The family of this 109-nucleotide RNA from Rhynchospora breviuscula is "MIR828 microRNA precursor family". It scores 75 bits against the family's covariance model. The family has 16 seed sequences and 204 matches in Rfam 15.1. The literature on the family includes a 2006 paper in Genes Dev by Rajagopalan et al., "A diverse and evolutionarily fluid set of microRNAs in Arabidopsis thaliana".

[Rfam]
RNA sequence: GGAAGGCCUCUUGCUCAAAUGAGUAUUCCAUUCAUUAUAUCUAAUGCAAUUCUAUCUUUGCCCUCGCUUGGUGGAGUUAUGAAAUGCUCAUUUGAGCAUGAUGCCUUGC
Numbered sequence: 001g002g003a004a005g006g007c008c009u010c011u012u013g014c015u016c017a018a019a020u021g022a023g024u025a026u027u028c029c030a031u032u033c034a035u036u037a038u039a040u041c042u043a044a045u046g047c048a049a050u051u052c053u054a055u056c057u058u059u060g061c062c063c064u065c066g067c068u069u070g071g072u073g074g075a076g077u078u079a080u081g082a083a084a085u086g087c088u089c090a091u092u093u094g095a096g097c098a099u100g101a102u103g104c105c106u107u108g109c
Stems, first nucleotide, its partner, number of pairs: 004106004010100001012098016029081002